[Rfam]
RNA sequence: UGGCCUCGGAUCAGGCGGGGAUACCCGCUGAACUUAAGCAUAUCAAUAAGCGGAGGAAAAGAAACCAACAGGGAUUACCUUAGUAACGGCGAGUGAAGAGGUAACAGCUCAAAUUUGAAAUCCGGCUCCUGCGGGGCCCGAGUUGUAAUUUGCAGAGGAUGCUUCGGCGUUGGCACCGGCCCAAGUCCCUUGGAACAGGGCGCCUUGGAGGGUGAGAGCCCCGUACCCGGCCGUGCCGCCUUCGCCAUGCGUAGCUCCCUCGACGAGUCGAGUUGUUUGGGAAUGCAGCUCUAAGUGGGUGGUAAAUUCCAUCUAAAGCUAAAUACAGGCCGGAGACCGAUAGCGCACAAGUAGAGUGAUCGAAAGAUGAAAAGCACUUUGAAAAGAGAGUUAAAAAGCACGUGAAAUUGUUGAAAGGGAAG
Dot-bracket structure: .......................((((((.....((....))......))))).).........((....))...(((((.....((.....))....)))))..((((..((((..((.((.((((.......)))).)).))..))))....(((((..((.(.(((..((...(((((...(.((((......)))))..(...)..((.......)).......))))).....))..))).....).)).))).))........(((((((........))))))).....(((((........)))))..)))).................................((....))...............((((....))))..................................
Numbered sequence: 001u002g003g004c005c006u007c008g009g010a011u012c013a014g015g016c017g018g019g020g021a022u023a024c025c026c027g028c029u030g031a032a033c034u035u036a037a038g039c040a041u042a043u044c045a046a047u048a049a050g051c052g053g054a055g056g057a058a059a060a061g062a063a064a065c066c067a068a069c070a071g072g073g074a075u076u077a078c079c080u081u082a083g084u085a086a087c088g089g090c091g092a093g094u095g096a097a098g099a100g101g102u103a104a105c106a107g108c109u110c111a112a113a114u115u116u117g118a119a120a121u122c123c124g125g126c127u128c129c130u131g132c133g134g135g136g137c138c139c140g141a142g143u144u145g146u147a148a149u150u151u152g153c154a155g156a157g158g159a160u161g162c163u164u165c166g167g168c169g170u171u172g173g174c175a176c177c178g179g180c181c182c183a184a185g186u187c188c189c190u191u192g193g194a195a196c197a198g199g200g201c202g203c204c205u206u207g208g209a210g211g212g213u214g215a216g217a218g219c220c221c222c223g224u225a226c227c228c229g230g231c232c233g234u235g236c237c238g239c240c241u242u243c244g245c246c247a248u249g250c251g252u253a254g255c256u257c258c259c260u261c262g263a264c265g266a267g268u269c270g271a272g273u274u275g276u277u278u279g280g281g282a283a284u285g286c287a288g289c290u291c292u293a294a295g296u297g298g299g300u301g302g303u304a305a306a307u308u309c310c311a312u313c314u315a316a317a318g319c320u321a322a323a324u325a326c327a328g329g330c331c332g333g334a335g336a337c338c339g340a341u342a343g344c345g346c347a348c349a350a351g352u353a354g355a356g357u358g359a360u361c362g363a364a365a366g367a368u369g370a371a372a373a374g375c376a377c378u379u380u381g382a383a384a385a386g387a388g389a390g391u392u393a394a395a396a397a398g399c400a401c402g403u404g405a406a407a408u409u410g411u412u413g414a415a416a417g418g419g420a421a422g
Stems, first nucleotide, its partner, number of pairs: 024055001025053005035042002065072002076103005086094002106320004112150004118144002121141002124138004155261002157258003162254002165251001167245003172240002177233005185201001187200004204208001211221002270291007297314005354361002377388004